[Rfam]
RNA sequence: UGGUAGAUGCACCCUGAUAACUAAACUCCCCUGGUUGGUUAACACCGACUGGGGUUUUUUUU
Numbered sequence: 001u002g003g004u005a006g007a008u009g010c011a012c013c014c015u016g017a018u019a020a021c022u023a024a025a026c027u028c029c030c031c032u033g034g035u036u037g038g039u040u041a042a043c044a045c046c047g048a049c050u051g052g053g054g055u056u057u058u059u060u061u062u
Base pairs, nucleotide, nucleotide: 002013003012004011029054030053031052032051033050034049035048036047037046038045
The record is a 62-nucleotide sequence from Cylindrospermum sp. NIES-4074, which matches "Nitrogen stress-induced RNA 1" in Rfam. It scores 68 bits against the family's covariance model. The organism belongs to Cylindrospermum, within Bacteria. Rfam classes the family as a small RNA.